[Rfam]
RNA sequence: GGUUGGUUCGAAGGUAAUGACUUACCUCGAUUGUUCACAGUCAGUUACAGAUCCAACUCCUUGUUCUACUCUUUCCCCUCUUCCUGAUACUGUACUUGACUAGUCUUAA
Number, nucleotide and partner (000 for none) at each position: 001g105002g104003u103004u102005g101006g100007u099008u098009c000010g097011a096012a000013g000014g093015u092016a088017a000018u086019g085020a000021c000022u000023u000024a000025c000026c000027u000028c000029g000030a000031u000032u000033g000034u000035u000036c000037a000038c000039a000040g070041u000042c000043a067044g066045u000046u000047a000048c000049a000050g000051a000052u000053c000054c000055a000056a000057c000058u000059c000060c000061u000062u000063g000064u000065u000066c044067u043068a000069c000070u040071c000072u000073u000074u000075c000076c000077c000078c000079u000080c000081u000082u000083c000084c000085u019086g018087a000088u016089a000090c000091u000092g015093u014094a000095c000096u011097u010098g008099a007100c006101u005102a004103g003104u002105c001106u000107u000108a000109a000

The family of this 109-nucleotide sequence from Aotus nancymaae is "Y RNA". Pairs were carried over by alignment from the consensus structure, which is taken from published work.